The record is a 191-nucleotide sequence from Natronosalvus rutilus, which matches "Sense overlapping transcript RNA 2652 (sot)" in Rfam. The literature on the family includes a 2015 paper in RNA Biol by Gomes-Filho et al., "Sense overlapping transcripts in IS1341-type transposase genes are functional non-coding RNAs in archaea". It is associated with IS1341-type transposase (tnpB) genes, at the 3'-end in H. salinarum NRC-1. The tetraloop structural motif may be functional. It scores 111 bits against the family's covariance model. It is annotated as a small RNA.
[Rfam]
RNA sequence: AUUACCGGACUCGCAAAACCCAACCGUUUGUUCGGAAGGUGAGCCUGUCUGGGUCGGGGCGCUCUGUAAACCGCCCAACCUCAUCCCGCGACAUCGCUUCGCGUGGAGUGCUUACGACGUAGGCUGAGGGAACAACAAAAGCCACGGGCCACCGCGCCCGUGGUCGUUUACUCCAGUCGGAUAGGGAGACG
Numbered sequence: 001a002u003u004a005c006c007g008g009a010c011u012c013g014c015a016a017a018a019c020c021c022a023a024c025c026g027u028u029u030g031u032u033c034g035g036a037a038g039g040u041g042a043g044c045c046u047g048u049c050u051g052g053g054u055c056g057g058g059g060c061g062c063u064c065u066g067u068a069a070a071c072c073g074c075c076c077a078a079c080c081u082c083a084u085c086c087c088g089c090g091a092c093a094u095c096g097c098u099u100c101g102c103g104u105g106g107a108g109u110g111c112u113u114a115c116g117a118c119g120u121a122g123g124c125u126g127a128g129g130g131a132a133c134a135a136c137a138a139a140a141g142c143c144a145c146g147g148g149c150c151a152c153c154g155c156g157c158c159c160g161u162g163g164u165c166g167u168u169u170a171c172u173c174c175a176g177u178c179g180g181a182u183a184g185g186g187a188g189a190c191g
Stems, first nucleotide, its partner, number of pairs: 005052006013044002020039002024035002053079002057076005065070001087191002094187002097184002099181002101177002105174006112126001115123001141164009